Rfam assigns this 97-nucleotide RNA sequence from Salinibacillus xinjiangensis to the family "c-di-GMP-I riboswitch aptamer". GEMM was predicted in a large-scale screen for bacterial structured RNA regulatory elements. The family's consensus secondary structure is taken from published work. It scores 71 bits against the family's covariance model.
RNA sequence: AAUUGAAAAAGGCAAACUACCCGAAAGGAUAGGACGCAAAGCUUAGGGUCUAAAUGCUAGGGGUGAUACUCCUGCACACGAUCGCCUGGUUACCAAU
Numbered sequence: 001a002a003u004u005g006a007a008a009a010a011g012g013c014a015a016a017c018u019a020c021c022c023g024a025a026a027g028g029a030u031a032g033g034a035c036g037c038a039a040a041g042c043u044u045a046g047g048g049u050c051u052a053a054a055u056g057c058u059a060g061g062g063g064u065g066a067u068a069c070u071c072c073u074g075c076a077c078a079c080g081a082u083c084g085c086c087u088g089g090u091u092a093c094c095a096a097u
Base pairs, nucleotide, nucleotide: 012037013036017032018031019030021028022027040091041090042089043088045087046086047085048082049081050080055076056075057074